[Rfam]
RNA: Glycine riboswitch aptamer
Organism: Brytella acorum
RNA sequence: UCACUGAUGACGGGAGAGACCGGGUGAAACAGACCGGCGCCGAAGGAGCAACCGCCCCGGAAACUCUCAGGCCAAAGGACCGACAUCGGCUG
Numbered sequence: 001u002c003a004c005u006g007a008u009g010a011c012g013g014g015a016g017a018g019a020c021c022g023g024g025u026g027a028a029a030c031a032g033a034c035c036g037g038c039g040c041c042g043a044a045g046g047a048g049c050a051a052c053c054g055c056c057c058c059g060g061a062a063a064c065u066c067u068c069a070g071g072c073c074a075a076a077g078g079a080c081c082g083a084c085a086u087c088g089g090c091u092g
Base pairs, nucleotide, nucleotide: 006087007086008085009084011082012081013080020037021036022035023034039072040071041070042068043067046066047065048064052060053059